[Rfam]
RNA sequence: AAUCAUACCUGGACGGGGUCAAUGAGUGAUCAAGAAUGCUCAUGGCCUAGGUUAGGGACCUCCAUUGCACAGUUGGGAAGGGUGCUUAGCCUAAGAUCUCCCCUUUGUGGGUGCAUCUACGUCGUUAUUUCUAAACAAAAUGUUGGAUUGUGAUUCUUGUUUGC
Numbered sequence: 001a002a003u004c005a006u007a008c009c010u011g012g013a014c015g016g017g018g019u020c021a022a023u024g025a026g027u028g029a030u031c032a033a034g035a036a037u038g039c040u041c042a043u044g045g046c047c048u049a050g051g052u053u054a055g056g057g058a059c060c061u062c063c064a065u066u067g068c069a070c071a072g073u074u075g076g077g078a079a080g081g082g083u084g085c086u087u088a089g090c091c092u093a094a095g096a097u098c099u100c101c102c103c104u105u106u107g108u109g110g111g112u113g114c115a116u117c118u119a120c121g122u123c124g125u126u127a128u129u130u131c132u133a134a135a136c137a138a139a140a141u142g143u144u145g146g147a148u149u150g151u152g153a154u155u156c157u158u159g160u161u162u163g164c
Base pairs, nucleotide, nucleotide: 012123013122014121015120016048017047018046019045020044021043023042024041025040026039027038049092050091051090053089055086056085059082060080061079062077063076094118095117096116097115098113101110102109138162139161140160141159145156146155147154148153
Overview:
This 164-nucleotide RNA from Thalictrum thalictroides belongs to the Rfam family "U1 spliceosomal RNA". Its Rfam clan is "U1 clan". Rfam's curators write: U1 is a small nuclear RNA (snRNA) component of the spliceosome (involved in pre-mRNA splicing). Its 5' end forms complementary base pairs with the 5' splice junction, thus defining the 5' donor site of an intron. The base pairs follow the family's consensus structure, which is taken from published work. The family's RNA type in Rfam is spliceosomal small nuclear RNA. The match comes from Rfam's covariance-model search (84 bits).